[Rfam]
RNA sequence: CGGGUGAUGUCGCCCGGCGGCACCAACCUUCUGUGCAACGGCUCUGGAGAACACCCGAGAGCACCUGGGUGCCACCCGUAUGCACGCCGCCCUGCUGGCGUCAGAGCAGCAACGAUGACGCACCCG
Numbered sequence: 001c002g003g004g005u006g007a008u009g010u011c012g013c014c015c016g017g018c019g020g021c022a023c024c025a026a027c028c029u030u031c032u033g034u035g036c037a038a039c040g041g042c043u044c045u046g047g048a049g050a051a052c053a054c055c056c057g058a059g060a061g062c063a064c065c066u067g068g069g070u071g072c073c074a075c076c077c078g079u080a081u082g083c084a085c086g087c088c089g090c091c092c093u094g095c096u097g098g099c100g101u102c103a104g105a106g107c108a109g110c111a112a113c114g115a116u117g118a119c120g121c122a123c124c125c126g
Base pairs, nucleotide, nucleotide: 016091017090018089019088020087021086033085034084035083036082037081038079039078040077041076045074046073047072052071053070054069055068056067
Rfam assigns this 126-nucleotide sequence from Streptomyces fulvorobeus to the family "gntR-DTE RNA". Taxonomically the source falls in Streptomyces (Bacteria, Bacillati, Actinomycetota, Kitasatosporales). The base pairs follow the family's consensus structure, which is taken from published work.